[Rfam]
RNA sequence: CACCUGCACCACGCAGCCCGGAUUCUGUGGGGGCUGCGCUGUUCCCCUUUCCGCCAUCCGUAGCACCACAUGAUUCGGCUUCGUGGUGCAGGCC
Numbered sequence: 001c002a003c004c005u006g007c008a009c010c011a012c013g014c015a016g017c018c019c020g021g022a023u024u025c026u027g028u029g030g031g032g033g034c035u036g037c038g039c040u041g042u043u044c045c046c047c048u049u050u051c052c053g054c055c056a057u058c059c060g061u062a063g064c065a066c067c068a069c070a071u072g073a074u075u076c077g078g079c080u081u082c083g084u085g086g087u088g089c090a091g092g093c094c
Base pairs, nucleotide, nucleotide: 003092004091005090006089007088008087009086010085011084012083013082015080016079017078018077020076021075022074023073024072026070027069028068029067031066033064034063035062036061037060038059

The family of this 94-nucleotide RNA from Drosophila kikkawai is "mir-995 microRNA precursor family". The source organism's lineage runs through Eukaryota, Arthropoda, Schizophora, Drosophilidae and Sophophora. The match comes from Rfam's covariance-model search (87 bits). Pairs were carried over by alignment from the consensus structure, which was predicted with RNAalifold. Its family is annotated with miRNA-mediated post-transcriptional gene silencing and RISC complex in the Gene Ontology.